Shown here is an 87-nucleotide sequence from Cohnella luojiensis, a member of the family "c-di-GMP-I riboswitch aptamer". Taxonomically the source falls in Cohnella (Bacteria, Bacillati, Bacillota, Paenibacillaceae). Rfam describes the family as follows. GEMM was predicted in a large-scale screen for bacterial structured RNA regulatory elements.

RNA sequence: ACACGAAAAAGGCAAACCUUUUGAAAAAAAGGGACGCAAAGCUAUGGACCUAAGGGGCUAAUGCCCUAUGGCCGCCAAGCUUCCGAA
Numbered sequence: 001a002c003a004c005g006a007a008a009a010a011g012g013c014a015a016a017c018c019u020u021u022u023g024a025a026a027a028a029a030a031g032g033g034a035c036g037c038a039a040a041g042c043u044a045u046g047g048a049c050c051u052a053a054g055g056g057g058c059u060a061a062u063g064c065c066c067u068a069u070g071g072c073c074g075c076c077a078a079g080c081u082u083c084c085g086a087a
Stems, first nucleotide, its partner, number of pairs: 012037002017032006040081004045077003049071002055066004